[Rfam]
Rfam assigns this 91-nucleotide RNA sequence from Peptoclostridium litorale to the family "Glycine riboswitch aptamer". NCBI's taxonomy places the organism under Bacteria, Bacillota, Peptostreptococcales, Peptoclostridiaceae, Peptoclostridium litorale.
RNA sequence: GGACACGCCCCUGGAGAGACCCGUAAAGGGCAUCGAAGAAGAAACCCAGCUACUUGGGGAAUCUUUCAGAUAAAAGGACAGGGUAUGAAUC
Numbered sequence: 001g002g003a004c005a006c007g008c009c010c011c012u013g014g015a016g017a018g019a020c021c022c023g024u025a026a027a028g029g030g031c032a033u034c035g036a037a038g039a040a041g042a043a044a045c046c047c048a049g050c051u052a053c054u055u056g057g058g059g060a061a062u063c064u065u066u067c068a069g070a071u072a073a074a075a076g077g078a079c080a081g082g083g084u085a086u087g088a089a090u091c
Stems, first nucleotide, its partner, number of pairs: 009083005020030003032071003035067002039065003045058004